[Rfam]
RNA sequence: CACACGUUUUUCAAGUCCACUUUUGGAACUCGUAAUUCAAAACUGUCACUUGAGUGAAUUCAUUUCAUUCAGUUCUUAUUGAAUGAUAGAAUAAUUUGGGUGGCAUUUUGUAGAGUUCGACAACUUUUUUGUUGUGUCAUCAAAAGUGCAUGAGUCAUUGGCGUGUAACAGCAGUAUACCCUCUGGCUGUGGCCAUGAUCACAUACACAUGUUUUGAUGAGCUGCUGACUGACUGACUCUUGUUAGUCACUACUCAUUGUGGUUCAAUUAUGUGAUCUAUACUACAUGAGAGGACACU
Number, nucleotide and partner (000 for none) at each position: 001c000002a166003c165004a164005c163006g162007u161008u160009u000010u154011u153012c152013a151014a000015g000016u000017c000018c148019a147020c146021u145022u144023u143024u142025g141026g118027a117028a116029c115030u114031c113032g000033u000034a000035a000036u112037u000038c110039a109040a000041a000042a107043c000044u105045g104046u000047c103048a000049c000050u000051u000052g000053a000054g000055u000056g000057a000058a000059u000060u000061c000062a000063u000064u000065u000066c000067a000068u000069u000070c000071a000072g000073u000074u000075c000076u000077u000078a000079u000080u000081g000082a000083a000084u000085g000086a000087u000088a000089g000090a000091a000092u000093a000094a000095u000096u000097u000098g000099g000100g000101u000102g000103g047104c045105a044106u000107u042108u000109u039110g038111u000112a036113g031114a030115g029116u028117u027118c026119g000120a135121c134122a133123a132124c131125u000126u000127u000128u000129u000130u000131g124132u123133u122134g121135u120136g000137u000138c000139a000140u000141c025142a024143a023144a022145a021146g020147u019148g018149c000150a000151u013152g012153a011154g010155u000156c000157a000158u000159u000160g008161g007162c006163g005164u004165g003166u002167a000168a000169c000170a000171g000172c000173a000174g000175u000176a000177u000178a000179c000180c293181c292182u291183c290184u289185g000186g000187c000188u000189g285190u284191g283192g282193c000194c000195a000196u000197g000198a000199u275200c274201a273202c272203a271204u270205a269206c000207a000208c000209a000210u000211g000212u000213u000214u000215u000216g000217a000218u000219g000220a000221g000222c000223u000224g000225c000226u000227g000228a000229c000230u000231g000232a000233c000234u000235g000236a000237c000238u000239c000240u000241u000242g000243u000244u000245a000246g000247u000248c000249a000250c000251u000252a000253c000254u000255c000256a000257u000258u000259g000260u000261g000262g000263u000264u000265c000266a000267a000268u000269u205270a204271u203272g202273u201274g200275a199276u000277c000278u000279a000280u000281a000282c192283u191284a190285c189286a000287u000288g000289a184290g183291a182292g181293g180294a000295c000296a000297c000298u000
This 298-nucleotide RNA from Helobdella robusta belongs to the Rfam family "Small nucleolar RNA SNORA53". The organism belongs to Helobdella, within Eukaryota. About the family: The snoRNA ACA53 belongs to the H/ACA family of pseudouridylation guide snoRNAs. Rfam links the family to the GO terms nucleolus and RNA processing. The base pairs follow the family's consensus structure, which was predicted with RNAalifold.